[Rfam]
RNA: chrB-a RNA
Nucleotides: 074
Stems, first nucleotide, its partner, number of pairs: 005024006047068006
Number, partner (000 for none) and nucleotide at each position: 001000c002000a003000g004000c005024a006023g007022g008021g009020g010019a011000u012000a013000g014000c015000g016000a017000u018000c019010u020009c021008c022007c023006c024005u025000c026000c027000a028000g029000g030000c031000g032000a033000c034000a035000u036000g037000c038000c039000c040000a041000a042000g043000a044000a045000u046000c047068g048067c049066g050065u051064c052063c053000g054000g055000u056000u057000c058000a059000c060000c061000a062000a063052g064051g065050a066049c067048g068047c069000a070000g071000c072000a073000u074000g